[Rfam]
RNA sequence: AGGGAAAAAAGACCCUAUUAAAUUUAAUUCUAAUUUAAUAUUGUAAAAAGAUAUAGGAGGUGUAGAAUAGGUAGGAGCUUCGGUGCUAAUAAAAUACUAUUAUUCCUAUUGUUUUUUUACUUAUUUAAUUAAGCGGGGCUGGAUUUUUAUUUAAUUUCUAAUUUUAAAGUCCUUUAUAGGCCGACCCGGGUUGAAGAUAUUAUUAGGUAGGGAGUUUGGCUAGGGUAGUAUAUUUGUUAAACUAUAAUGUAGGUGUCUUAAGGGGGGUUUAUAGAGAAUAGAAAUCUCUAGUAGAAUAAAAGGGUAAAAGUCCCUUUGAUUUUAAUUUUUAGUAUAAAUAUAAACUAUAAAAGUAUAGCCUAUUAAUCCUUUAGUCCCUCAAAAUUUGAGGUUAGAGGUGCUAGAAAAGUUACUAUAGGGAUAAUUAGCUUAUAGCGGCCAAGCAUUUAUAAUAAUAUUACUUUUUAAUUUUUUAAUAUUGGUUCUUCUUAUUAUACUAAAGUAGAAUUUAGUAAGUAUUAGAUUAUUUACUUACUAAUAGGGAAUAUAAAUUAGGUUUAGACUGUUAUAAAAUAGGUUAGUUUUACCCU
Numbered sequence: 001a002g003g004g005a006a007a008a009a010a011g012a013c014c015c016u017a018u019u020a021a022a023u024u025u026a027a028u029u030c031u032a033a034u035u036u037a038a039u040a041u042u043g044u045a046a047a048a049a050g051a052u053a054u055a056g057g058a059g060g061u062g063u064a065g066a067a068u069a070g071g072u073a074g075g076a077g078c079u080u081c082g083g084u085g086c087u088a089a090u091a092a093a094a095u096a097c098u099a100u101u102a103u104u105c106c107u108a109u110u111g112u113u114u115u116u117u118u119a120c121u122u123a124u125u126u127a128a129u130u131a132a133g134c135g136g137g138g139c140u141g142g143a144u145u146u147u148u149a150u151u152u153a154a155u156u157u158c159u160a161a162u163u164u165u166a167a168a169g170u171c172c173u174u175u176a177u178a179g180g181c182c183g184a185c186c187c188g189g190g191u192u193g194a195a196g197a198u199a200u201u202a203u204u205a206g207g208u209a210g211g212g213a214g215u216u217u218g219g220c221u222a223g224g225g226u227a228g229u230a231u232a233u234u235u236g237u238u239a240a241a242c243u244a245u246a247a248u249g250u251a252g253g254u255g256u257c258u259u260a261a262g263g264g265g266g267g268u269u270u271a272u273a274g275a276g277a278a279u280a281g282a283a284a285u286c287u288c289u290a291g292u293a294g295a296a297u298a299a300a301a302g303g304g305u306a307a308a309a310g311u312c313c314c315u316u317u318g319a320u321u322u323u324a325a326u327u328u329u330u331a332g333u334a335u336a337a338a339u340a341u342a343a344a345c346u347a348u349a350a351a352a353g354u355a356u357a358g359c360c361u362a363u364u365a366a367u368c369c370u371u372u373a374g375u376c377c378c379u380c381a382a383a384a385u386u387u388g389a390g391g392u393u394a395g396a397g398g399u400g401c402u403a404g405a406a407a408a409g410u411u412a413c414u415a416u417a418g419g420g421a422u423a424a425u426u427a428g429c430u431u432a433u434a435g436c437g438g439c440c441a442a443g444c445a446u447u448u449a450u451a452a453u454a455a456u457a458u459u460a461c462u463u464u465u466u467a468a469u470u471u472u473u474u475a476a477u478a479u480u481g482g483u484u485c486u487u488c489u490u491a492u493u494a495u496a497c498u499a500a501a502g503u504a505g506a507a508u509u510u511a512g513u514a515a516g517u518a519u520u521a522g523a524u525u526a527u528u529u530a531c532u533u534a535c536u537a538a539u540a541g542g543g544a545a546u547a548u549a550a551a552u553u554a555g556g557u558u559u560a561g562a563c564u565g566u567u568a569u570a571a572a573a574u575a576g577g578u579u580a581g582u583u584u585u586a587c588c589c590u
Base pairs, nucleotide, nucleotide: 002590003589004588006585007584014419015418016417017416019415020414021411022410023409024408025407027215028214029213030212034207035206036205037204038203039202040201043120044119045118046117047116048115049114050113051112052111053109054108055107056106057105058104059103070101071100072099073098074097077084078083124195125194126193127192128191134188135187136186137185142151143150169181170180171179218231219229220228221227232254233253234252235251236250237249257358258357263315264314265313266312267311268310269295270294272290273289274288275287276286277285296305297304320344321343322342325339326338327337328336346355347354348353369397370396371395372394373393374392377391378390379389380388428469430467432466434462435461437459438458443453480555481553482552483551484550486544487543488542489541490540493518494517496513497512498511499510500509501508520534521533522532524530561579562578563577564576565574566573567572
RNA: Eukaryotic large subunit ribosomal RNA, nucleotides 2354 to 2943
Organism: Neurospora crassa